This 194-nucleotide sequence from Pseudactinobacillus ducreyi belongs to the Rfam family "GcvB RNA". The literature on the family includes a 2000 paper in Mol Microbiol by Urbanowski et al., "The gcvB gene encodes a small untranslated RNA involved in expression of the dipeptide and oligopeptide transport systems in Escherichia coli". The sequence is in the family's curated seed alignment. The gcvB gene encodes a small untranslated RNA involved in expression of the dipeptide and oligopeptide transport systems in Escherichia coli. The family's RNA type in Rfam is non-coding RNA gene. Gene Ontology terms of the family: regulation of gene expression and mRNA binding.
RNA sequence: ACUGAAAUAGUUUAGUGUUUAUUCGUGUUCUUUAAUGCUAUUAAAUCCAUCUAUUUCAAAUUUAAGUAUGAUGUUGUGUUUGCAUAUUGGUCUAGGCAACUAGACUAGAGUAACAGUUAAGUUACUCAUUUCACUUCCUGUAUAUUUAAACCUUUUGGUUUAUUAACCGCCUAAUUUAGGCGGUUUUUUUACUU
Numbered sequence: 001a002c003u004g005a006a007a008u009a010g011u012u013u014a015g016u017g018u019u020u021a022u023u024c025g026u027g028u029u030c031u032u033u034a035a036u037g038c039u040a041u042u043a044a045a046u047c048c049a050u051c052u053a054u055u056u057c058a059a060a061u062u063u064a065a066g067u068a069u070g071a072u073g074u075u076g077u078g079u080u081u082g083c084a085u086a087u088u089g090g091u092c093u094a095g096g097c098a099a100c101u102a103g104a105c106u107a108g109a110g111u112a113a114c115a116g117u118u119a120a121g122u123u124a125c126u127c128a129u130u131u132c133a134c135u136u137c138c139u140g141u142a143u144a145u146u147u148a149a150a151c152c153u154u155u156u157g158g159u160u161u162a163u164u165a166a167c168c169g170c171c172u173a174a175u176u177u178a179g180g181c182g183g184u185u186u187u188u189u190u191a192c193u194u
Stems, first nucleotide, its partner, number of pairs: 009062004017054002025050003031045006088107008109126006142164001144163002165185006